[Rfam]
RNA sequence: GGAGCCUACCAGGGGGAUACGGGGUAAUAUACCCUGAGGAAACUCCGGCCUCCAGAUCCCCAGGGAAGUCGUAUAAGACAAGGGUAGAACCCUUGGCUACGGAACAGAAACGAGACCGGUAUAAUGGAAGAUGAAAAUGAGAUAACCCCUAGCUUAGGUGACUAAGCUAGGGGAUCGAGAUCCAUUAUACCGGUUGAAACGGCCGACCUUCUCGGAGCAAGUAGAGAAGGAGAUGAAUAGGGGAUCUGAUCCUUCUCUUGACGCUAAGUCGAAUUCCCCCUAAAUACAGAAGCCGGGUUAUUGGUAGGCUCC
Numbered sequence: 001g002g003a004g005c006c007u008a009c010c011a012g013g014g015g016g017a018u019a020c021g022g023g024g025u026a027a028u029a030u031a032c033c034c035u036g037a038g039g040a041a042a043c044u045c046c047g048g049c050c051u052c053c054a055g056a057u058c059c060c061c062a063g064g065g066a067a068g069u070c071g072u073a074u075a076a077g078a079c080a081a082g083g084g085u086a087g088a089a090c091c092c093u094u095g096g097c098u099a100c101g102g103a104a105c106a107g108a109a110a111c112g113a114g115a116c117c118g119g120u121a122u123a124a125u126g127g128a129a130g131a132u133g134a135a136a137a138u139g140a141g142a143u144a145a146c147c148c149c150u151a152g153c154u155u156a157g158g159u160g161a162c163u164a165a166g167c168u169a170g171g172g173g174a175u176c177g178a179g180a181u182c183c184a185u186u187a188u189a190c191c192g193g194u195u196g197a198a199a200c201g202g203c204c205g206a207c208c209u210u211c212u213c214g215g216a217g218c219a220a221g222u223a224g225a226g227a228a229g230g231a232g233a234u235g236a237a238u239a240g241g242g243g244a245u246c247u248g249a250u251c252c253u254u255c256u257c258u259u260g261a262c263g264c265u266a267a268g269u270c271g272a273a274u275u276c277c278c279c280c281u282a283a284a285u286a287c288a289g290a291a292g293c294c295g296g297g298u299u300a301u302u303g304g305u306a307g308g309c310u311c312c
Base pairs, nucleotide, nucleotide: 001312002311004309005308006307007306008305009304010303011281012280013279014278015277016276020036021035022034023033024032041299042298043297045296046295047294048293049292050217051216052215053214055246056245057244058243059242060241063213064212065211066210067209068079069078070077080094081093082092083091084090095208096207100205101204102203116193117192118191119190120189121188122187123186124185125184126183137175138174221262222261227254228253229252230251231250

This 312-nucleotide RNA sequence from Stygiolobus azoricus belongs to the Rfam family "Archaeal RNase P". It is annotated as a ribozyme. Rfam links the family to the GO terms ribonuclease P activity, multimeric ribonuclease P complex and tRNA processing. The source organism's lineage runs through Archaea, Thermoproteati, Thermoproteota, Sulfolobaceae and Stygiolobus. From the family's description: Ribonuclease P (RNase P) is a ubiquitous endoribonuclease, found in archaea, bacteria and eukarya as well as chloroplasts and mitochondria. Its best characterised activity is the generation of mature 5'-ends of tRNAs by cleaving the 5'-leader elements of precursor-tRNAs. Cellular RNase Ps are ribonucleoproteins. RNA from bacterial RNase Ps retains its catalytic activity in the absence of the protein subunit, i.e. it is a ribozyme. Isolated eukaryotic and archaeal RNase P RNA has not been shown to retain its catalytic function, but is still essential for the catalytic activity of the holoenzyme. Although the archaeal and eukaryotic holoenzymes have a much greater protein content than the bacterial ones, the RNA cores from all the three lineages are homologous -- helices corresponding to P1, P2, P3, P4, and P10/11 are common to all cellular RNase P RNAs. Yet, there is considerable sequence variation, particularly among the eukaryotic RNAs. A reference for the family is Brown (1999), "The Ribonuclease P Database", Nucleic Acids Res. The base pairs follow the family's consensus structure, which is taken from published work.